[Rfam]
RNA sequence: UAUUUUUAAGGGCUAACCCGCCGAAAGGCGGGGGCGCAAAACCGACGGGCCUAAAGCAAAUCAGCUAUGGCGGCCGGGUUGCUGAA
Numbered sequence: 001u002a003u004u005u006u007u008a009a010g011g012g013c014u015a016a017c018c019c020g021c022c023g024a025a026a027g028g029c030g031g032g033g034g035c036g037c038a039a040a041a042c043c044g045a046c047g048g049g050c051c052u053a054a055a056g057c058a059a060a061u062c063a064g065c066u067a068u069g070g071c072g073g074c075c076g077g078g079u080u081g082c083u084g085a086a
Base pairs, nucleotide, nucleotide: 012037013036017032018031019030020029021028022027040080041079042078043077046076047075048074049071050070051069056065057064